About this RNA
The record is a 275-nucleotide sequence from Yarrowia lipolytica, which matches "Nuclear RNase P" in Rfam. Its family is annotated with tRNA processing, ribonuclease P activity and ribonuclease P complex in the Gene Ontology. Rfam describes the family as follows. Ribonuclease P (RNase P) is a ubiquitous endoribonuclease, found in archaea, bacteria and eukarya as well as chloroplasts and mitochondria. Its best characterised activity is the generation of mature 5'-ends of tRNAs by cleaving the 5'-leader elements of precursor-tRNAs. Cellular RNase Ps are ribonucleoproteins. RNA from bacterial RNase Ps retains its catalytic activity in the absence of the protein subunit, i.e. it is a ribozyme. Isolated eukaryotic and archaeal RNase P RNA has not been shown to retain its catalytic function, but is still essential for the catalytic activity of the holoenzyme. Although the archaeal and eukaryotic holoenzyme s have a much greater protein content than the bacterial ones, the RNA cores from all the three lineages are homologous -- helices corresponding to P1, P2, P3, P4, and P10/11 are common to all cellular RNase P RNAs. Yet, there is considerable sequence variation, particularly among the eukaryotic RNAs. It scores 77 bits against the family's covariance model.

[Rfam]
Nucleotides: 275
Stems, first nucleotide, its partner, number of pairs: 003236002006233001018059005032048006068263005076206004108117003120135006138200006157186005238251005
Number, partner (000 for none) and nucleotide at each position: 001000u002000c003236c004235c005000u006233c007000u008000g009000g010000c011000c012000u013000c014000g015000c016000g017000u018059a019058c020057c021056u022055g023000g024000c025000u026000a027000c028000a029000c030000a031000a032048g033047a034046c035045u036044g037043c038000g039000c040000u041000c042000u043037g044036c045035a046034g047033u048032u049000c050000g051000a052000a053000u054000c055022c056021a057020g058019g059018u060000g061000g062000g063000a064000a065000a066000u067000u068263c069262g070261g071260u072259g073000g074000u075000u076206c077205u078204c079203u080000u081000c082000u083000c084000u085000c086000u087000a088000u089000a090000a091000c092000g093000a094000c095000c096000c097000u098000u099000g100000g101000g102000c103000c104000g105000u106000g107000u108117c109116u110115c111000g112000u113000g114000a115110g116109a117108g118000u119000g120135c121134c122133a123132u124131g125130u126000g127000g128000a129000a130125a131124c132123a133122u134121g135120g136000a137000a138200c139199a140198g141197c142196g143195u144000c145000a146000u147000c148000a149000g150000a151000a152000a153000a154000a155000a156000c157186a158185c159184u160183g161182g162000g163000g164000c165000c166000g167000u168000u169000g170000u171000a172000a173000a174000a175000g176000g177000c178000g179000g180000g181000c182161c183160u184159g185158g186157u187000a188000u189000g190000g191000a192000a193000g194000u195143g196142c197141g198140c199139u200138g201000c202000g203079g204078g205077a206076g207000a208000u209000u210000g211000a212000c213000g214000u215000a216000a217000g218000u219000c220000u221000u222000u223000a224000g225000u226000g227000c228000a229000a230000u231000g232000c233006g234000u235004g236003g237000c238251c239250u240249a241248c242247c243000c244000a245000c246000g247242g248241g249240u250239a251238g252000a253000a254000c255000u256000c257000g258000a259072u260071a261070c262069c263068g264000a265000u266000c267000a268000c269000u270000g271000g272000g273000g274000g275000a
It is annotated as a ribozyme. Lineage of the source: Eukaryota > Opisthokonta > Ascomycota > Dipodascales > Yarrowia lipolytica.